Notes
This 118-nucleotide RNA from Streptomyces sp. SID4985 belongs to the Rfam family "Streptomyces-metK RNA". The family's consensus secondary structure is taken from published work. Lineage of the source: Bacteria > Bacillati > Actinomycetota > Streptomycetaceae > Streptomyces. A search with the family's covariance model found it, with a score of 116 bits.
[Rfam]
RNA sequence: GAGAGUGCGGGUGGCCUCGCGGUCGCGAGCGACCGAUAAACUGUCCUCGGACGACGCCGGGCGCAGCUCCCGGAUCGUCCGCCAAUGAUCAGCCAGCAGCCGCUGCAACCCCAGGGAG
Numbered sequence: 001g002a003g004a005g006u007g008c009g010g011g012u013g014g015c016c017u018c019g020c021g022g023u024c025g026c027g028a029g030c031g032a033c034c035g036a037u038a039a040a041c042u043g044u045c046c047u048c049g050g051a052c053g054a055c056g057c058c059g060g061g062c063g064c065a066g067c068u069c070c071c072g073g074a075u076c077g078u079c080c081g082c083c084a085a086u087g088a089u090c091a092g093c094c095a096g097c098a099g100c101c102g103c104u105g106c107a108a109c110c111c112c113a114g115g116g117a118g
Base pairs, nucleotide, nucleotide: 049080050079051078052077053076054075057073058072059071060070061069094105095104096103097102